Shown here is a 441-nucleotide RNA from Diaphorobacter sp. HDW4B, a member of the family "Bacterial RNase P class A".
Taxonomically the source falls in Diaphorobacter (Bacteria, Betaproteobacteria, Burkholderiales, Comamonadaceae).
Nucleotides: 441
Base pairs, nucleotide, nucleotide: 001437002436003435004434005433007431008430009429010428011426012388013387014386015385016384017383018382020048021047022046023045024044025043026042028040029039030038053424055422057421058420059419060418061417062290063289064288065287069321070320074286075285076284077283078282079093080092081091082090083089094108095106096105097104098103109281110280114279115278116275117274133235134234135233138230139229140228244262245261246260247259248258249257294343295342296341297340304334305333306332307331308330309329315326316325317324318323351371352370353369354368356367357366358365359364
Number, partner (000 for none) and nucleotide at each position: 001437g002436a003435a004434g005433c006000a007431c008430g009429c010428c011426a012388g013387a014386c015385u016384g017383c018382c019000g020048c021047u022046g023045g024044u025043g026042c027000a028040a029039u030038c031000a032000c033000c034000g035000a036000a037000a038030g039029g040028u041000g042026g043025c044024a045023c046022u047021g048020g049000a050000g051000g052000a053424a054000c055422g056000u057421c058420c059419g060418g061417a062290c063289u064288g065287c066000a067000c068000a069321g070320g071000a072000c073000a074286g075285c076284g077283u078282a079093g080092c081091a082090g083089c084000u085000a086000a087000c088000g089083g090082c091081u092080g093079c094108c095106c096105a097104c098103c099000g100000u101000g102000a103098g104097g105096u106095g107000a108094g109281g110280a111000u112000c113000a114279g115278a116275g117274c118000a119000a120000c121000a122000g123000a124000g125000a126000c127000g128000a129000g130000u131000c132000g133235g134234u135233g136000c137000g138230a139229c140228u141000c142000g143000c144000c145000g146000u147000a148000c149000c150000a151000u152000u153000u154000g155000u156000g157000g158000g159000u160000g161000u162000u163000c164000u165000a166000u167000g168000g169000c170000a171000c172000c173000c174000g175000g176000c177000g178000c179000a180000a181000g182000c183000c184000g185000g186000a187000a188000a189000c190000c191000g192000c193000g194000u195000g196000g197000c198000g199000c200000a201000a202000g203000c204000c205000a206000g207000g208000c209000g210000g211000u212000g213000c214000g215000g216000a217000c218000g219000a220000u221000a222000g223000u224000c225000c226000g227000u228140a229139g230138u231000g232000a233135c234134a235133u236000a237000g238000c239000c240000g241000c242000c243000c244262g245261g246260u247259g248258c249257g250000g251000c252000a253000a254000g255000g256000c257249c258248g259247c260246g261245c262244c263000g264000g265000g266000u267000g268000a269000a270000a271000c272000g273000g274117g275116c276000a277000a278115u279114c280110u281109c282078u283077a284076c285075g286074c287065g288064c289063a290062g291000c292000a293000a294343u295342a296341c297340c298000a299000a300000g301000u302000a303000g304334g305333c306332c307331a308330g309329c310000g311000u312000u313000g314000a315326u316325g317324u318323g319000g320070u321069u322000c323318c324317g325316c326315a327000g328000a329309g330308u331307u332306g333305g334304c335000g336000g337000g338000u339000a340297g341296g342295u343294a344000g345000c346000a347000u348000c349000g350000a351371g352370c353369c354368g355000u356367g357366g358365u359364g360000g361000c362000g363000a364359c365358a366357c367356c368354c369353g370352g371351c372000c373000c374000a375000g376000a377000u378000u379000a380000a381000u382018g383017g384016c385015g386014g387013u388012c389000a390000c391000g392000u393000u394000g395000c396000g397000g398000g399000c400000a401000a402000c403000c404000g405000c406000a407000a408000u409000g410000c411000a412000c413000a414000g415000a416000a417061u418060c419059c420058g421057g422055c423000u424053u425000a426011u427000c428010g429009g430008c431007g432000g433005g434004c435003u436002u437001c438000a439000c440000a441000c